[Rfam]
RNA sequence: UUCCUCGGACCGUCCGAGGCGCAUGACGAGGGUGGGGGAACCACUUUCGACGCACCAGCUCCACGCGUCUUGGGGUGAAGUCGGCACGACGCCGGCCGGGCACCUGACAGCCCGAACCCGACAGCUCACCUCACAGGCGUUCGUCAGGAAGGAU
Numbered sequence: 001u002u003c004c005u006c007g008g009a010c011c012g013u014c015c016g017a018g019g020c021g022c023a024u025g026a027c028g029a030g031g032g033u034g035g036g037g038g039a040a041c042c043a044c045u046u047u048c049g050a051c052g053c054a055c056c057a058g059c060u061c062c063a064c065g066c067g068u069c070u071u072g073g074g075g076u077g078a079a080g081u082c083g084g085c086a087c088g089a090c091g092c093c094g095g096c097c098g099g100g101c102a103c104c105u106g107a108c109a110g111c112c113c114g115a116a117c118c119c120g121a122c123a124g125c126u127c128a129c130c131u132c133a134c135a136g137g138c139g140u141u142c143g144u145c146a147g148g149a150a151g152g153a154u
Base pairs, nucleotide, nucleotide: 003031004030005029006028007027032134033133034132035131036130037129042072043071073119074118075117081095082094083093084092098113099112100111101110

Shown here is a 154-nucleotide sequence from Luteipulveratus mongoliensis, a member of the family "c-di-AMP riboswitch aptamer (ydaO/yuaA leader)". Rfam links the family to the GO terms cyclic-di-AMP binding and regulation of gene expression. The organism belongs to Luteipulveratus, within Bacteria. A search with the family's covariance model found it, with a score of 61 bits.